Shown here is a 102-nucleotide RNA sequence from Plutella xylostella, a member of the family "mir-8517 microRNA precursor family".
The family's consensus secondary structure was predicted with RNAalifold.
Rfam links the family to the GO terms miRNA-mediated post-transcriptional gene silencing and RISC complex.
[Rfam]
RNA sequence: AAAAAAAAGUUUUUAGCCAUUGAACUGUUUUGUGACUCUCUGGCAGAGAACAAUUUGUUCUUUGACAGCGAGGGACAAAACAGUUCAAUAGCUAAAGCCUCC
Numbered sequence: 001a002a003a004a005a006a007a008a009g010u011u012u013u014u015a016g017c018c019a020u021u022g023a024a025c026u027g028u029u030u031u032g033u034g035a036c037u038c039u040c041u042g043g044c045a046g047a048g049a050a051c052a053a054u055u056u057g058u059u060c061u062u063u064g065a066c067a068g069c070g071a072g073g074g075a076c077a078a079a080a081c082a083g084u085u086c087a088a089u090a091g092c093u094a095a096a097g098c099c100u101c102c
Stems, first nucleotide, its partner, number of pairs: 011097007019089010030068004035063001049059004